Rfam assigns this 108-nucleotide sequence from Mesobacillus boroniphilus to the family "SAM riboswitch aptamer (S box leader)".
The family has 457 seed sequences and 9,625 matches in Rfam 15.1.
Pairs were carried over by alignment from the consensus structure, which is taken from published work.
Nucleotides: 108
Base pairs, nucleotide, nucleotide: 001108002107003106004105005104006103007102008101013042016041017040018039022032023031024030026084027083028082029081043076044075045074046073048072049071050068052066053065080100085097086096087095088094
Number, partner (000 for none) and nucleotide at each position: 001108u002107u003106c004105u005104u006103a007102u008101c009000a010000a011000g012000a013042g014000c015000a016041g017040g018039c019000g020000g021000a022032g023031g024030g025000a026084c027083g028082a029081g030024c031023c032022c033000g034000a035000u036000g037000a038000a039018g040017c041016c042013c043076g044075g045074c046073a047000a048072c049071c050068g051000a052066u053065c054000c055000a056000g057000c058000a059000u060000a061000a062000g063000c064000u065053g066052g067000g068050c069000a070000c071049g072048g073046u074045g075044c076043u077000a078000a079000u080100u081029c082028u083027u084026g085097c086096a087095g088094c089000g090000u091000a092000a093000a094088g095087c096086u097085g098000a099000a100080a101008g102007a103006u104005g105004a106003g107002a108001a